Record summary:
The family of this 355-nucleotide RNA sequence from a Neisseriaceae bacterium is "Bacterial RNase P class A".

RNA sequence: CAAGUAGAUUAGACAGUCGCUGUGCAUUUUUGUAUAGAGGAAAGUCCGGGCUCCAUAGAGCACAAUGCCAGCUAACGGCUGGGCAUCGAAAGGUGACGGAAAGUGGAACAGAAAGCAAAACCACCGAUGAUCUCUAAGUUAGAGAUACAGGUAAGGGUGAAAAGGUGUGGUAAGAGCACACCGCAUGCUUGGCAACAAGUCAUGGCUGGCUAAACCCCAUUGGGAGCAAGAUCAAACAAAACACGAUAAUGUGGCUCGCAUUGUGUUUGGGUAGAUUGCUUGAGUUUAUUGGUGACAAUAAAUCUAGAUGAAUGACUGUCCGCGACAGAACCCGGCUUAUCGAUCUACUUGCUAC
Numbered sequence: 001c002a003a004g005u006a007g008a009u010u011a012g013a014c015a016g017u018c019g020c021u022g023u024g025c026a027u028u029u030u031u032g033u034a035u036a037g038a039g040g041a042a043a044g045u046c047c048g049g050g051c052u053c054c055a056u057a058g059a060g061c062a063c064a065a066u067g068c069c070a071g072c073u074a075a076c077g078g079c080u081g082g083g084c085a086u087c088g089a090a091a092g093g094u095g096a097c098g099g100a101a102a103g104u105g106g107a108a109c110a111g112a113a114a115g116c117a118a119a120a121c122c123a124c125c126g127a128u129g130a131u132c133u134c135u136a137a138g139u140u141a142g143a144g145a146u147a148c149a150g151g152u153a154a155g156g157g158u159g160a161a162a163a164g165g166u167g168u169g170g171u172a173a174g175a176g177c178a179c180a181c182c183g184c185a186u187g188c189u190u191g192g193c194a195a196c197a198a199g200u201c202a203u204g205g206c207u208g209g210c211u212a213a214a215c216c217c218c219a220u221u222g223g224g225a226g227c228a229a230g231a232u233c234a235a236a237c238a239a240a241a242c243a244c245g246a247u248a249a250u251g252u253g254g255c256u257c258g259c260a261u262u263g264u265g266u267u268u269g270g271g272u273a274g275a276u277u278g279c280u281u282g283a284g285u286u287u288a289u290u291g292g293u294g295a296c297a298a299u300a301a302a303u304c305u306a307g308a309u310g311a312a313u314g315a316c317u318g319u320c321c322g323c324g325a326c327a328g329a330a331c332c333c334g335g336c337u338u339a340u341c342g343a344u345c346u347a348c349u350u351g352c353u354a355c
Base pairs, nucleotide, nucleotide: 001351002350003349004348005347006346007345008344009343010342011340012320013319014318015317016316017315018314020037021036022035023034024033025032026031042338043337044336046335047334048333049332050331051226052225053224054223058257059256060255061254063222064221065220066219067218068082069081070080071079072078083097084095085094086093087092098217099216103215104214105211106210121156122155123152124151125150128147129146131144164182165181166180167179168178169177183206184204185203186202187201189198190197191196230277231276232275233274239268240267241266242265243264244263248262249261250260251259252258284303285302286301287300288299289298290297291296
Description
NCBI's taxonomy places the organism under Bacteria, Pseudomonadati, Pseudomonadota, Betaproteobacteria, Neisseriaceae. The match comes from Rfam's covariance-model search (308 bits). Gene Ontology terms of the family: dimeric ribonuclease P complex, tRNA processing and ribonuclease P activity.